[Rfam]
RNA sequence: GCGUACUAAAACAACGAAAGCCCUACCUCUCUUUCAUCCUUGCGGCUCCUAGGCCGCGCCAGUGUGGAUCAGUAACACAACAAAUUC
Numbered sequence: 001g002c003g004u005a006c007u008a009a010a011a012c013a014a015c016g017a018a019a020g021c022c023c024u025a026c027c028u029c030u031c032u033u034u035c036a037u038c039c040u041u042g043c044g045g046c047u048c049c050u051a052g053g054c055c056g057c058g059c060c061a062g063u064g065u066g067g068a069u070c071a072g073u074a075a076c077a078c079a080a081c082a083a084a085u086u087c
Stems, first nucleotide, its partner, number of pairs: 034067003039062002041058007
Overview: Shown here is an 87-nucleotide RNA sequence from Paenibacillus xerothermodurans, a member of the family "BsrC". The organism belongs to Paenibacillus, within Bacteria. For this family Rfam cites "Novel small RNA-encoding genes in the intergenic regions of Bacillus subtilis" (Saito et al., Gene, 2008). Rfam describes the family as follows. The 301 nucleotide sequence from Kouji Nakamura has been trimmed to a highly conserved ~85 nucleotide long core to form this family. The family's consensus secondary structure was predicted with CMfinder.